MIR2593 microRNA precursor family: a 115-nucleotide RNA from Trifolium pratense.
[Rfam]
RNA sequence: AUAUAAGAGAAAGUUUACUUUUUAGAUUCAUUGAGAAUCUAAUGUAUCUGGACCAUAUUAUGAUCCAAAUACAUUAGAUUCUCAAUAAAUCUAAAAAGUAAAUUUUUUCUUAUAU
Numbered sequence: 001a002u003a004u005a006a007g008a009g010a011a012a013g014u015u016u017a018c019u020u021u022u023u024a025g026a027u028u029c030a031u032u033g034a035g036a037a038u039c040u041a042a043u044g045u046a047u048c049u050g051g052a053c054c055a056u057a058u059u060a061u062g063a064u065c066c067a068a069a070u071a072c073a074u075u076a077g078a079u080u081c082u083c084a085a086u087a088a089a090u091c092u093a094a095a096a097a098g099u100a101a102a103u104u105u106u107u108u109c110u111u112a113u114a115u
Base pairs, nucleotide, nucleotide: 002114003113004112005111006110007109009107010106011105012104013103015101016100017099018098019097020096021095022094023093024092025091027089028088030086031085032084033083034082035081036080037079038078039077040076041075042074043073044072049067050066051065052064

Rfam links the family to the GO terms miRNA-mediated post-transcriptional gene silencing and RISC complex.